Shown here is a 152-nucleotide sequence from Methylovirgula ligni, a member of the family "Alphaproteobacterial sRNA ar45". It is annotated as a small RNA.
RNA sequence: GCCCAAAUCGCACGUGCCUGUGGUCGUGUGUCGAUUGGCGGGGAUCCGGACAAGAGGCCGGUUAACCGCCACCAAAAAUCGGCAGCCGGAGCGAACCGGUGAACCCCGCCAAACGGGGGACACGACUUAAAGCAACGACGGACCGGGCUUUU
Numbered sequence: 001g002c003c004c005a006a007a008u009c010g011c012a013c014g015u016g017c018c019u020g021u022g023g024u025c026g027u028g029u030g031u032c033g034a035u036u037g038g039c040g041g042g043g044a045u046c047c048g049g050a051c052a053a054g055a056g057g058c059c060g061g062u063u064a065a066c067c068g069c070c071a072c073c074a075a076a077a078a079u080c081g082g083c084a085g086c087c088g089g090a091g092c093g094a095a096c097c098g099g100u101g102a103a104c105c106c107c108g109c110c111a112a113a114c115g116g117g118g119g120a121c122a123c124g125a126c127u128u129a130a131a132g133c134a135a136c137g138a139c140g141g142a143c144c145g146g147g148c149u150u151u152u
Stems, first nucleotide, its partner, number of pairs: 001148004008138003015134003022127008037070005046061004078100005104118005
Pairs were carried over by alignment from the consensus structure.